[Rfam]
RNA: Streptomyces RNA 3202
RNA sequence: CCACGUCCCGACGCACUCCCCCCCCGGCGCCGGGACCUUCCCAGAGCCGGGUUUCGGCGCCUCUCCCCCCGGGGCGUCGGAGCCCGGCUCCACU
Numbered sequence: 001c002c003a004c005g006u007c008c009c010g011a012c013g014c015a016c017u018c019c020c021c022c023c024c025c026g027g028c029g030c031c032g033g034g035a036c037c038u039u040c041c042c043a044g045a046g047c048c049g050g051g052u053u054u055c056g057g058c059g060c061c062u063c064u065c066c067c068c069c070c071g072g073g074g075c076g077u078c079g080g081a082g083c084c085c086g087g088c089u090c091c092a093c094u
Stems, first nucleotide, its partner, number of pairs: 005036006012029003044090010055079009